[Rfam]
RNA: Xanthomonas sRNA sX9
Organism: Xanthomonas oryzae
RNA sequence: AUGUACUGCUCCUACAUUCCGGUUCAGAGCGCGCUGUCCGCGCCCAGCUGACGACUGCCGGCUCCGUUUUGUCAGCC
Numbered sequence: 001a002u003g004u005a006c007u008g009c010u011c012c013u014a015c016a017u018u019c020c021g022g023u024u025c026a027g028a029g030c031g032c033g034c035u036g037u038c039c040g041c042g043c044c045c046a047g048c049u050g051a052c053g054a055c056u057g058c059c060g061g062c063u064c065c066g067u068u069u070u071g072u073c074a075g076c077c
Stems, first nucleotide, its partner, number of pairs: 002016004020036004025031001048075007